[Rfam]
RNA: mir-15 microRNA precursor family
RNA sequence: GUUGGCUGUGCUUUAGCAGCACGUAAAUAUUGGAGUUAAACCACUUCAGAUGUCUCCAGUAUUGAUUGUGCUGCUGAAGUAAGACUGAC
Numbered sequence: 001g002u003u004g005g006c007u008g009u010g011c012u013u014u015a016g017c018a019g020c021a022c023g024u025a026a027a028u029a030u031u032g033g034a035g036u037u038a039a040a041c042c043a044c045u046u047c048a049g050a051u052g053u054c055u056c057c058a059g060u061a062u063u064g065a066u067u068g069u070g071c072u073g074c075u076g077a078a079g080u081a082a083g084a085c086u087g088a089c
Base pairs, nucleotide, nucleotide: 001089002088003087004086005085013077014076015075016074017073018072019071020070021069022068023067024065026063027062028061029060030059031058032057033056034055035054